The record is a 125-nucleotide sequence, which matches "LOOT RNA" in Rfam. The family's RNA type in Rfam is small RNA.

RNA sequence: CGCCUAACCCUUGCGGUGCAGUUCCGUAAGACAUGGCGAAAACUCCAUCCCUAGUAAAAAGCUCCUCGUCCGGGCACUAGGGAUGGUCAUAACUCGAAAGGGUUAUGGGUGGCCGAAAGGCCGCC
Numbered sequence: 001c002g003c004c005u006a007a008c009c010c011u012u013g014c015g016g017u018g019c020a021g022u023u024c025c026g027u028a029a030g031a032c033a034u035g036g037c038g039a040a041a042a043c044u045c046c047a048u049c050c051c052u053a054g055u056a057a058a059a060a061g062c063u064c065c066u067c068g069u070c071c072g073g074g075c076a077c078u079a080g081g082g083a084u085g086g087u088c089a090u091a092a093c094u095c096g097a098a099a100g101g102g103u104u105a106u107g108g109g110u111g112g113c114c115g116a117a118a119g120g121c122c123g124c125c
Stems, first nucleotide, its partner, number of pairs: 001038004010030006045086011061075002064073002088107008108125006